[Rfam]
mir-146 microRNA precursor family: an 88-nucleotide RNA sequence from Muraenolepis orangiensis. A search with the family's covariance model found it, with a score of 56 bits. Taxonomically the source falls in Muraenolepis (Eukaryota, Teleostomi, Teleostei, Neoteleostei). A reference for the family is Lagos-Quintana et al. (2002), "Identification of tissue-specific microRNAs from mouse", Curr Biol. Its family is annotated with RISC complex and miRNA-mediated post-transcriptional gene silencing in the Gene Ontology.
RNA sequence: AAAGGUGCUCUACCAUGAGAACUGAAUUCCAUAGAUGGCUCCUUCAGGUAUCGUCUGUGGGCUCAGUUCUUUUGGUAAGGUACUCAUG
Numbered sequence: 001a002a003a004g005g006u007g008c009u010c011u012a013c014c015a016u017g018a019g020a021a022c023u024g025a026a027u028u029c030c031a032u033a034g035a036u037g038g039c040u041c042c043u044u045c046a047g048g049u050a051u052c053g054u055c056u057g058u059g060g061g062c063u064c065a066g067u068u069c070u071u072u073u074g075g076u077a078a079g080g081u082a083c084u085c086a087u088g
Stems, first nucleotide, its partner, number of pairs: 008079002013074001018070008033056004
Dot-bracket structure: .......((...(....((((((((.......((((................))))......))))))))...)...)).........